[Rfam]
RNA: mir-9230 microRNA precursor family
Nucleotides: 087
Base pairs, nucleotide, nucleotide: 001086005082006081007080008079009078010076011075012074014072015071016068017067018066019065020064021063022059023058024057027052028051029050030049031048034047035046036045037044038043
Number, partner (000 for none) and nucleotide at each position: 001086c002000c003000g004000a005082c006081u007080g008079c009078u010076c011075u012074g013000a014072a015071c016068u017067c018066c019065a020064g021063u022059u023058c024057c025000a026000g027052g028051c029050g030049a031048g032000u033000c034047u035046c036045u037044g038043g039000g040000g041000a042000c043038c044037c045036a046035g047034a048031c049030u050029c051028g052027u053000g054000c055000g056000g057024g058023g059022a060000g061000a062000g063021a064020c065019u066018g067017g068016a069000c070000u071015g072014u073000c074012u075011g076010g077000c078009a079008g080007c081006g082005g083000g084000c085000a086001g087000a